[Rfam]
RNA sequence: UUCCGAUGAUGAUCCAGCCAUGCUAAUACUGAUGCACCAGGCUGGCUGUGUGUCUGUCUGGGUGUAAGUGAGUUCAGCUCACCUUCUCACACUGACAGUGUGCACUGAGGAGC
Number, nucleotide and partner (000 for none) at each position: 001u112002u111003c110004c109005g000006a000007u000008g000009a000010u000011g000012a000013u000014c000015c000016a000017g000018c000019c000020a000021u000022g000023c000024u000025a000026a000027u000028a000029c000030u000031g000032a000033u000034g000035c000036a000037c000038c000039a000040g000041g000042c056043u000044g054045g053046c052047u000048g000049u000050g000051u000052g046053u045054c044055u000056g042057u000058c000059u000060g000061g000062g000063u000064g000065u000066a000067a000068g000069u000070g000071a000072g000073u000074u000075c000076a000077g000078c000079u000080c000081a000082c000083c000084u000085u000086c000087u000088c000089a000090c000091a000092c000093u000094g000095a000096c000097a000098g000099u000100g000101u000102g000103c000104a000105c000106u000107g000108a000109g004110g003111a002112g001113c000

Rfam assigns this 113-nucleotide RNA from Megalops atlanticus to the family "Small nucleolar RNA U6-53/MBII-28". Its family is annotated with nucleolus and RNA processing in the Gene Ontology. The family's RNA type in Rfam is C/D-box small nucleolar RNA. NCBI's taxonomy places the organism under Eukaryota, Opisthokonta, Teleostomi, Neopterygii, Megalops. Rfam 15.1 lists 780 matches to the family in 403 species.